RNA sequence: CAGCAUUCGAGGCUUGUUUUAAGUUGCCUGCGAUCUGUUUAAAGACUCAGGCAGCUAAAGCAAGUCUGGAACGCAG
Number, nucleotide and partner (000 for none) at each position: 001c000002a000003g074004c073005a000006u071007u070008c069009g000010a067011g066012g065013c064014u063015u062016g061017u060018u059019u058020u057021a000022a056023g055024u054025u053026g052027c051028c050029u049030g048031c000032g046033a000034u000035c000036u000037g000038u000039u000040u000041a000042a000043a000044g000045a000046c032047u000048c030049a029050g028051g027052c026053a025054g024055c023056u022057a020058a019059a018060g017061c016062a015063a014064g013065u012066c011067u010068g000069g008070a007071a006072c000073g004074c003075a000076g000